RNA sequence: GGUCAUGAGAGCCAGUGAUAAGCCCCAGCUAGCUGGUCGGCAACCCUCCUCCGCGGUGGGGUGCCCUGGGUGAGGACCAGGCGUUACACACAAGUGCAGCGCAAGCGCGGGAC
Numbered sequence: 001g002g003u004c005a006u007g008a009g010a011g012c013c014a015g016u017g018a019u020a021a022g023c024c025c026c027a028g029c030u031a032g033c034u035g036g037u038c039g040g041c042a043a044c045c046c047u048c049c050u051c052c053g054c055g056g057u058g059g060g061g062u063g064c065c066c067u068g069g070g071u072g073a074g075g076a077c078c079a080g081g082c083g084u085u086a087c088a089c090a091c092a093a094g095u096g097c098a099g100c101g102c103a104a105g106c107g108c109g110g111g112a113c
Base pairs, nucleotide, nucleotide: 001078002077003076004075009038011037012036013035014034015033016032021030022029039065040064041063044061045060046059048056049055081102082101083100084099085098087096088095089094
This 113-nucleotide RNA from Rothia aeria belongs to the Rfam family "SAM (S-adenosyl methionine) riboswitch aptamer". The family's consensus secondary structure is taken from published work.